[Rfam]
RNA sequence: UAAGCAGGUUGCAAUUACUGUGCUUCAUUUUGAGGACGCACUGCCAUUAUCCUGCUGAAAGACAAGCUGUGGUAAUCAUUUUUGAUUUUGCCUUUAAGAGGGUAAAAUCAUGACAGAUUGACAUGGGCAAUU
Numbered sequence: 001u002a003a004g005c006a007g008g009u010u011g012c013a014a015u016u017a018c019u020g021u022g023c024u025u026c027a028u029u030u031u032g033a034g035g036a037c038g039c040a041c042u043g044c045c046a047u048u049a050u051c052c053u054g055c056u057g058a059a060a061g062a063c064a065a066g067c068u069g070u071g072g073u074a075a076u077c078a079u080u081u082u083u084g085a086u087u088u089u090g091c092c093u094u095u096a097a098g099a100g101g102g103u104a105a106a107a108u109c110a111u112g113a114c115a116g117a118u119u120g121a122c123a124u125g126g127g128c129a130a131u132u
Stems, first nucleotide, its partner, number of pairs: 003056006018043001020041004025036002067126005073120005083110012
This 132-nucleotide RNA from Prolemur simus belongs to the Rfam family "Small nucleolar RNA SNORA69". Lineage of the source: Eukaryota > Bilateria > Chordata > Strepsirrhini > Prolemur. The match comes from Rfam's covariance-model search (137 bits). Rfam's curators write: U69 is a member of the H/ACA class of small nucleolar RNAs (snoRNAs) which act as guides in the the modification of uridines to pseudouridines. By type it is an H/ACA-box small nucleolar RNA.